[Rfam]
Nucleotides: 046
Base pairs, nucleotide, nucleotide: 001020002019003018004017005016006015007014008013033045034044036042037041
Number, partner (000 for none) and nucleotide at each position: 001020c002019c003018c004017g005016g006015g007014g008013c009000u010000g011000a012000a013008g014007c015006c016005c017004c018003g019002g020001g021000c022000u023000u024000u025000g026000u027000u028000c029000u030000u031000a032000u033045g034044c035000a036042c037041c038000u039000u040000c041037g042036g043000c044034g045033c046000g